[Rfam]
Annotation: A member of the RNA family "Glycine riboswitch aptamer" from Cryobacterium psychrotolerans, 103 nucleotides long.

RNA sequence: CCACUCUGAAAAGUAGCCGCGGCACAUACGCGGCUCGCCCACGGUGAAAGUCACACCCCGCUCGAGGUGCGACGAAGCUCUCAGGCCGGAUGACAGAGGGGGA
Numbered sequence: 001c002c003a004c005u006c007u008g009a010a011a012a013g014u015a016g017c018c019g020c021g022g023c024a025c026a027u028a029c030g031c032g033g034c035u036c037g038c039c040c041a042c043g044g045u046g047a048a049a050g051u052c053a054c055a056c057c058c059c060g061c062u063c064g065a066g067g068u069g070c071g072a073c074g075a076a077g078c079u080c081u082c083a084g085g086c087c088g089g090a091u092g093a094c095a096g097a098g099g100g101g102g103a
Stems, first nucleotide, its partner, number of pairs: 001101002004098005015035007037086003041081001044080001046078001050073002